A member of the RNA family "Small Cajal body specific RNA 11" from Aquarana catesbeiana, 135 nucleotides long. Rfam links the family to the GO terms RNA processing, nucleolus and Cajal body.
[Rfam]
RNA sequence: AUGUCCAGUCUUCAUCGGACUCUCCUCUUCAGUUCAUGAUUUCUGGGAAGCAAUGGCUGGACGUACAAUAAACCUGUCUGUUUAGAAGGGCUGCACACAGUAAAGUGUUCUCCCUUAAAGGCUCAACAGGACAUG
Numbered sequence: 001a002u003g004u005c006c007a008g009u010c011u012u013c014a015u016c017g018g019a020c021u022c023u024c025c026u027c028u029u030c031a032g033u034u035c036a037u038g039a040u041u042u043c044u045g046g047g048a049a050g051c052a053a054u055g056g057c058u059g060g061a062c063g064u065a066c067a068a069u070a071a072a073c074c075u076g077u078c079u080g081u082u083u084a085g086a087a088g089g090g091c092u093g094c095a096c097a098c099a100g101u102a103a104a105g106u107g108u109u110c111u112c113c114c115u116u117a118a119a120g121g122c123u124c125a126a127c128a129g130g131a132c133a134u135g
Base pairs, nucleotide, nucleotide: 002063003062004061005060006059007058008057010056011055025050026049028047029046030045031044032043073130074129075128076127077126080122081121082120083119086116087115088114089113090112093108094107095106096105

Annotation:
Rfam's curators write: scaRNAs are a specific class of small nuclear RNAs which localise to the Cajal bodies and guide the modification of RNA polymerase II transcribed spliceosomal RNAs U1, U2, U4, U5 and U12. ACA57 belongs to the H/ACA box class of guide RNAs as it has the predicted hairpin-hinge-hairpin-tail structure, conserved H/ACA-box motifs and is found associated with GAR1. ACA57 is predicted to guide the pseudouridylation of the U5 spliceosomal RNA at position U43. For this family Rfam cites "Cajal body-specific small nuclear RNAs: a novel class of 2'-O-methylation and pseudouridylation guide RNAs" (Darzacq et al., EMBO J, 2002). The match comes from Rfam's covariance-model search (55 bits).